This 84-nucleotide RNA sequence from Rhodamnia argentea belongs to the Rfam family "Small nucleolar RNA R12". Pairs were carried over by alignment from the consensus structure, which was predicted with PFOLD. For this family Rfam cites "The high diversity of snoRNAs in plants: identification and comparative study of 120 snoRNA genes from Oryza sativa" (Chen et al., Nucleic Acids Res, 2003). The organism belongs to Rhodamnia, within Eukaryota. Rfam describes the family as follows. snoR12 is a C/D box small nucleolar RNA, which acts as a methylation guide for 25S ribosomal RNA in plants. snoR12 has been alternatively named snoZ44 in Arabidopsis and snoZ131 in rice. The family's RNA type in Rfam is C/D-box small nucleolar RNA.
RNA sequence: AUGAUGGAUGAUGAGAAGAAUCAUUCGGAUUCCCAAUGAUUUGCUUUGAACAUGAUAUCAAACAACCAGCUACUUCUGACACAU
Numbered sequence: 001a002u003g004a005u006g007g008a009u010g011a012u013g014a015g016a017a018g019a020a021u022c023a024u025u026c027g028g029a030u031u032c033c034c035a036a037u038g039a040u041u042u043g044c045u046u047u048g049a050a051c052a053u054g055a056u057a058u059c060a061a062a063c064a065a066c067c068a069g070c071u072a073c074u075u076c077u078g079a080c081a082c083a084u
Stems, first nucleotide, its partner, number of pairs: 001084003005081002